This 67-nucleotide RNA sequence from Pipistrellus kuhlii belongs to the Rfam family "mir-9256 microRNA precursor family". It scores 83 bits against the family's covariance model. The source organism's lineage runs through Eukaryota, Opisthokonta, Dipnotetrapodomorpha, Amniota and Pipistrellus. Its family is annotated with miRNA-mediated post-transcriptional gene silencing and RISC complex in the Gene Ontology.
RNA sequence: AUAUACACUAAGUGGCCAGAUUGUUAUGCAUUCAGAGAUCAUAAUAAUCUGGUCACUUAGUGUAUAU
Numbered sequence: 001a002u003a004u005a006c007a008c009u010a011a012g013u014g015g016c017c018a019g020a021u022u023g024u025u026a027u028g029c030a031u032u033c034a035g036a037g038a039u040c041a042u043a044a045u046a047a048u049c050u051g052g053u054c055a056c057u058u059a060g061u062g063u064a065u066a067u
Base pairs, nucleotide, nucleotide: 004064005063006062007061008060009059010058011057012056013055014054015053016052017051019049020048021047022046023045024044025043026042027041028040